[Rfam]
RNA sequence: AGCAAAAUGAUGAAAAUGGUUUAAGAAUUUCCCGUGUGGGAAAUCCCAUUCUGGGUCUUCAAAGUUCUCUGAUUGCU
Numbered sequence: 001a002g003c004a005a006a007a008u009g010a011u012g013a014a015a016a017u018g019g020u021u022u023a024a025g026a027a028u029u030u031c032c033c034g035u036g037u038g039g040g041a042a043a044u045c046c047c048a049u050u051c052u053g054g055g056u057c058u059u060c061a062a063a064g065u066u067c068u069c070u071g072a073u074u075g076c077u
Base pairs, nucleotide, nucleotide: 001077002076003075004074005073
RNA: Small nucleolar RNA R160
Organism: Hibiscus syriacus